[Rfam]
RNA sequence: GCCUGGUGGUUCCUGAAGGCAGCUUUACCGUGCUGAUCUUUUGGGUUUUUUGACAAACAGGCUUAAAUGAAGCUCUGUCGCUUAAUGCAUGGUAGCUGCAUCACCAUGCCGUUAUCAUAGCCCGGGCACAGAGACAUAA
Numbered sequence: 001g002c003c004u005g006g007u008g009g010u011u012c013c014u015g016a017a018g019g020c021a022g023c024u025u026u027a028c029c030g031u032g033c034u035g036a037u038c039u040u041u042u043g044g045g046u047u048u049u050u051u052g053a054c055a056a057a058c059a060g061g062c063u064u065a066a067a068u069g070a071a072g073c074u075c076u077g078u079c080g081c082u083u084a085a086u087g088c089a090u091g092g093u094a095g096c097u098g099c100a101u102c103a104c105c106a107u108g109c110c111g112u113u114a115u116c117a118u119a120g121c122c123c124g125g126g127c128a129c130a131g132a133g134a135c136a137u138a139a
Stems, first nucleotide, its partner, number of pairs: 001062004007053001008048001011045003015041003020035004075131001077129002080127004087121002089118004094113003098109003

A member of the RNA family "Small nucleolar RNA SNORA84" from Denticeps clupeoides, 139 nucleotides long.
Gene Ontology terms of the family: RNA processing and nucleolus.
The match comes from Rfam's covariance-model search (60 bits).
The organism belongs to Denticeps, within Eukaryota.
The family's consensus secondary structure was predicted with WAR.